[Rfam]
RNA: HIF-1 alpha IRES
Organism: Canis lupus
RNA sequence: CUCGUCUGAGGGGACGCGAGGAUCGGCCUGGUCGCCGCCGCUUGGGCCAGCGCGUCGGCUCGGGCCUUGACAAGCCGCCCGAGGGGAGGCUCUCCGGAGCCUAGAGCUGGACCCUAGCGAUCGCCGCCCGCCCUUCCUGCCCGCGUUCUGCGAGGGGUUUCCCGCCUUGCACCUCCCACCUCGGGACGUGCCUCCGCUCCCCUCGUCGCGUGCGGAGGGAGCCAGCGCUUAGGCCGGAGCGAGCCUGGGGGGGCUACCGGCCGGGAAGGCUUCGCGGGGACCGAUUCGCCAUG
Numbered sequence: 001c002u003c004g005u006c007u008g009a010g011g012g013g014a015c016g017c018g019a020g021g022a023u024c025g026g027c028c029u030g031g032u033c034g035c036c037g038c039c040g041c042u043u044g045g046g047c048c049a050g051c052g053c054g055u056c057g058g059c060u061c062g063g064g065c066c067u068u069g070a071c072a073a074g075c076c077g078c079c080c081g082a083g084g085g086g087a088g089g090c091u092c093u094c095c096g097g098a099g100c101c102u103a104g105a106g107c108u109g110g111a112c113c114c115u116a117g118c119g120a121u122c123g124c125c126g127c128c129c130g131c132c133c134u135u136c137c138u139g140c141c142c143g144c145g146u147u148c149u150g151c152g153a154g155g156g157g158u159u160u161c162c163c164g165c166c167u168u169g170c171a172c173c174u175c176c177c178a179c180c181u182c183g184g185g186a187c188g189u190g191c192c193u194c195c196g197c198u199c200c201c202c203u204c205g206u207c208g209c210g211u212g213c214g215g216a217g218g219g220a221g222c223c224a225g226c227g228c229u230u231a232g233g234c235c236g237g238a239g240c241g242a243g244c245c246u247g248g249g250g251g252g253g254c255u256a257c258c259g260g261c262c263g264g265g266a267a268g269g270c271u272u273c274g275c276g277g278g279g280a281c282c283g284a285u286u287c288g289c290c291a292u293g
Stems, first nucleotide, its partner, number of pairs: 001013003016035003019029003037065003086160003090157001133155004137150001189224002192221004201215002235260001237258001239257001241255001